[Rfam]
RNA sequence: AUACUUACUUUAGACGGGGUCAAUGGAUGAUUAAGAAGGCUUAUGGCUUAGGUAUGUGGCACCCAUUGCACUUUGGAGGGGCACCUGCCUAACAUCUCCCCAAAGUGGGAGAGCGUACGUCAUAAUUUGUGGCAAUAGGAGCCCACGUUUGCGCAGCCCUUG
Numbered sequence: 001a002u003a004c005u006u007a008c009u010u011u012a013g014a015c016g017g018g019g020u021c022a023a024u025g026g027a028u029g030a031u032u033a034a035g036a037a038g039g040c041u042u043a044u045g046g047c048u049u050a051g052g053u054a055u056g057u058g059g060c061a062c063c064c065a066u067u068g069c070a071c072u073u074u075g076g077a078g079g080g081g082c083a084c085c086u087g088c089c090u091a092a093c094a095u096c097u098c099c100c101c102a103a104a105g106u107g108g109g110a111g112a113g114c115g116u117a118c119g120u121c122a123u124a125a126u127u128u129g130u131g132g133c134a135a136u137a138g139g140a141g142c143c144c145a146c147g148u149u150u151g152c153g154c155a156g157c158c159c160u161u162g
Stems, first nucleotide, its partner, number of pairs: 013121004017049006024043003028039001050090003056084003060080001062078001063076002092116002095112003099108002137161003141157001146153002
Shown here is a 162-nucleotide RNA sequence from Carnegiea gigantea, a member of the family "U1 spliceosomal RNA". It is annotated as a spliceosomal small nuclear RNA. NCBI's taxonomy places the organism under Eukaryota, Viridiplantae, Magnoliopsida, eudicotyledons, Carnegiea.